[Rfam]
RNA sequence: GACAGGGCGUACAAGGCGAUUCUCAAAACGACCGAGGAGCGAUCCUCCAGUAGGAAGAGAGUCGAGCCGGCGUCGUGUCGUGCGUUUUGAAAAACGAC
Numbered sequence: 001g002a003c004a005g006g007g008c009g010u011a012c013a014a015g016g017c018g019a020u021u022c023u024c025a026a027a028a029c030g031a032c033c034g035a036g037g038a039g040c041g042a043u044c045c046u047c048c049a050g051u052a053g054g055a056a057g058a059g060a061g062u063c064g065a066g067c068c069g070g071c072g073u074c075g076u077g078u079c080g081u082g083c084g085u086u087u088u089g090a091a092a093a094a095c096g097a098c
Stems, first nucleotide, its partner, number of pairs: 001079004006074005015068002019062006029053001034047005083096003
RNA: Archaeal large subunit ribosomal RNA, nucleotides 542 to 639